The family of this 47-nucleotide RNA sequence from Lacipirellula parvula is "Acido-Lenti-1 RNA". The family has 87 seed sequences and 2,607 matches in Rfam 15.1. By type it is a small RNA. A search with the family's covariance model found it, with a score of 38 bits. The source organism's lineage runs through Bacteria, Pseudomonadati, Pirellulales, Lacipirellulaceae and Lacipirellula.
[Rfam]
RNA sequence: CCAGGGGCUCGCGCCCCUGGCUACAGCAUAUCGCCCCCUCCGGGGCU
Numbered sequence: 001c002c003a004g005g006g007g008c009u010c011g012c013g014c015c016c017c018u019g020g021c022u023a024c025a026g027c028a029u030a031u032c033g034c035c036c037c038c039u040c041c042g043g044g045g046c047u
Stems, first nucleotide, its partner, number of pairs: 001020008033046005